[Rfam]
RNA: ZMP/ZTP riboswitch aptamer (pfl RNA motif)
RNA sequence: ACACGCAGCAGCGACUGGCGCCAUCGAGGUGGAGCACCACCGGGGAGCGAUCGACGAGGCAGGCACCGCGCGCCUGGGUGUCACGC
Numbered sequence: 001a002c003a004c005g006c007a008g009c010a011g012c013g014a015c016u017g018g019c020g021c022c023a024u025c026g027a028g029g030u031g032g033a034g035c036a037c038c039a040c041c042g043g044g045g046a047g048c049g050a051u052c053g054a055c056g057a058g059g060c061a062g063g064c065a066c067c068g069c070g071c072g073c074c075u076g077g078g079u080g081u082c083a084c085g086c
Stems, first nucleotide, its partner, number of pairs: 006053001008051001011048002015044002017074005029040004063081005